[Rfam]
RNA: Small nucleolar RNA SNORA70
RNA sequence: UUGCAGCCAAUUAGGCCGACUGCGCUCUUUUCCCCAUAGGGGCUCAGUGUGCGAUGGCUGCAGACAGCAGCCUCCGUGGUCGUGUACACAGCCUGUUCCCAGGACUGGUUGCCAAGGGACCUUGGAGACAACU
Numbered sequence: 001u002u003g004c005a006g007c008c009a010a011u012u013a014g015g016c017c018g019a020c021u022g023c024g025c026u027c028u029u030u031u032c033c034c035c036a037u038a039g040g041g042g043c044u045c046a047g048u049g050u051g052c053g054a055u056g057g058c059u060g061c062a063g064a065c066a067g068c069a070g071c072c073u074c075c076g077u078g079g080u081c082g083u084g085u086a087c088a089c090a091g092c093c094u095g096u097u098c099c100c101a102g103g104a105c106u107g108g109u110u111g112c113c114a115a116g117g118g119a120c121c122u123u124g125g126a127g128a129c130a131a132c133u
Base pairs, nucleotide, nucleotide: 002053003052004051005050019048020047021046022045025042026041027040028039078121079120080119089111090110091109092108093107